[Rfam]
RNA sequence: CUGCAGUGAUGGGAAUAUUUUUCGUCAACAGCAUUUCACGUGGUGAAUGGUGACACCUGUUUUCUGAGCAA
Numbered sequence: 001c002u003g004c005a006g007u008g009a010u011g012g013g014a015a016u017a018u019u020u021u022u023c024g025u026c027a028a029c030a031g032c033a034u035u036u037c038a039c040g041u042g043g044u045g046a047a048u049g050g051u052g053a054c055a056c057c058u059g060u061u062u063u064c065u066g067a068g069c070a071a
Stems, first nucleotide, its partner, number of pairs: 002070003008026004
Shown here is a 71-nucleotide RNA from Gopherus evgoodei, a member of the family "Small nucleolar RNA SNORD56". The family has 7 seed sequences and 796 matches in Rfam 15.1. The organism belongs to Gopherus, within Eukaryota. The family's RNA type in Rfam is C/D-box small nucleolar RNA.